[Rfam]
RNA sequence: GCCGAGCUAAGUAGCGUUUGCUUAUAACCCAAGUGGGGUCAUUAUGGUGACUGAACGAUGGCAUUGGUUCUCUUGGCAGGAGUCACGAUUGCUUUUCGUGGCUUGCCCGUUCCAAGCUAUGAGUUGAAUCGUGUGAUUUGGGCGAAGGCUUGGAUCUCGUGUUUCCUAAAUGAGAAGGCACAGCGUUAGGCUGGUUUCACAGAGCACAGCGAAAACUUCGUGUUCAUAACAGUGCAAGGAUUACGAGCUGGUUUUUUGUGGUUAGCCUAGCCAAUCGGACGACACUUUGUUCUUUCGUUCUC
Numbered sequence: 001g002c003c004g005a006g007c008u009a010a011g012u013a014g015c016g017u018u019u020g021c022u023u024a025u026a027a028c029c030c031a032a033g034u035g036g037g038g039u040c041a042u043u044a045u046g047g048u049g050a051c052u053g054a055a056c057g058a059u060g061g062c063a064u065u066g067g068u069u070c071u072c073u074u075g076g077c078a079g080g081a082g083u084c085a086c087g088a089u090u091g092c093u094u095u096u097c098g099u100g101g102c103u104u105g106c107c108c109g110u111u112c113c114a115a116g117c118u119a120u121g122a123g124u125u126g127a128a129u130c131g132u133g134u135g136a137u138u139u140g141g142g143c144g145a146a147g148g149c150u151u152g153g154a155u156c157u158c159g160u161g162u163u164u165c166c167u168a169a170a171u172g173a174g175a176a177g178g179c180a181c182a183g184c185g186u187u188a189g190g191c192u193g194g195u196u197u198c199a200c201a202g203a204g205c206a207c208a209g210c211g212a213a214a215a216c217u218u219c220g221u222g223u224u225c226a227u228a229a230c231a232g233u234g235c236a237a238g239g240a241u242u243a244c245g246a247g248c249u250g251g252u253u254u255u256u257u258g259u260g261g262u263u264a265g266c267c268u269a270g271c272c273a274a275u276c277g278g279a280c281g282a283c284a285c286u287u288u289g290u291u292c293u294u295u296c297g298u299u300c301u302c
Base pairs, nucleotide, nucleotide: 001040003038004023005022006021007020009018010017028037029036030035047302049300050299052297053296055294057292058290059289060288061285064282065281066280068279069278070277073274074273075272076271077270080263081262083260085259086258088257091254099250100249101248102247103246104245105244107239108238110237111236113234114233116230118228119227120226121225122224123223124222126165127164128163130161131160132159133158135156136155137154138153139152140151141150142149143148172221174219175218176217177216184211185210186209191202192201193200
RNA: Plant signal recognition particle RNA